Shown here is a 56-nucleotide sequence from Vibrio rumoiensis, a member of the family "Pseudomonas sRNA P26". From the family's description: This small RNA (sRNA) was computationally identified in the genome of the opportunistic pathogen Pseudomonas aeruginosa and its expression verified by northern blot analysis. P26 is conserved across many Gammaproteobacteria species and appears to be consistently located between the DNA directed RNA polymerase (beta subunit) and 50S ribosomal protein L7/L12 genes. By type it is a non-coding RNA gene. The match comes from Rfam's covariance-model search (60 bits). The organism belongs to Vibrio rumoiensis, within Bacteria.
RNA sequence: AUAUUUAAUUUCUUAGCCGCAAGGCUAAUGGCUGGUGGUUUUUUAACCACCAGCCU
Numbered sequence: 001a002u003a004u005u006u007a008a009u010u011u012c013u014u015a016g017c018c019g020c021a022a023g024g025c026u027a028a029u030g031g032c033u034g035g036u037g038g039u040u041u042u043u044u045a046a047c048c049a050c051c052a053g054c055c056u
Base pairs, nucleotide, nucleotide: 014027015026016025017024018023030055031054032053033052034051035050036049037048038047039046